[Rfam]
This 67-nucleotide sequence from Bombyx mori belongs to the Rfam family "mir-2774 microRNA precursor family". Gene Ontology terms of the family: miRNA-mediated post-transcriptional gene silencing and RISC complex.

RNA sequence: AUAACAUUUGGACUGUCGGUGUACCGAGCAAUAUCAUCCGCUUGGCGAAAGAUCUUCCCUUUAUCGU
Numbered sequence: 001a002u003a004a005c006a007u008u009u010g011g012a013c014u015g016u017c018g019g020u021g022u023a024c025c026g027a028g029c030a031a032u033a034u035c036a037u038c039c040g041c042u043u044g045g046c047g048a049a050a051g052a053u054c055u056u057c058c059c060u061u062u063a064u065c066g067u
Base pairs, nucleotide, nucleotide: 004064006062010058011057012056015053016052017051020049022047024045025044026043027042028041029040